[Rfam]
RNA sequence: AUGAAAGCACGGGGAGAGUACGCGAAAGCGUCGCCGAAGGAGCAAGUGGCAGCAGCCAUGAAUCUCUCAGGCAAAAAGACUCGUGCCGGACG
Numbered sequence: 001a002u003g004a005a006a007g008c009a010c011g012g013g014g015a016g017a018g019u020a021c022g023c024g025a026a027a028g029c030g031u032c033g034c035c036g037a038a039g040g041a042g043c044a045a046g047u048g049g050c051a052g053c054a055g056c057c058a059u060g061a062a063u064c065u066c067u068c069a070g071g072c073a074a075a076a077a078g079a080c081u082c083g084u085g086c087c088g089g090a091c092g
Base pairs, nucleotide, nucleotide: 007086008085009084010083011082012081013080020031021030022029023028033072034071035070036068037067040066041065042064046059047058048057049056
A member of the RNA family "Glycine riboswitch aptamer" from Planococcus halotolerans, 92 nucleotides long.
Rfam's curators write: This family represents the bacterial glycine riboswitch.
The source organism's lineage runs through Bacteria, Bacillota, Caryophanales, Caryophanaceae and Planococcus.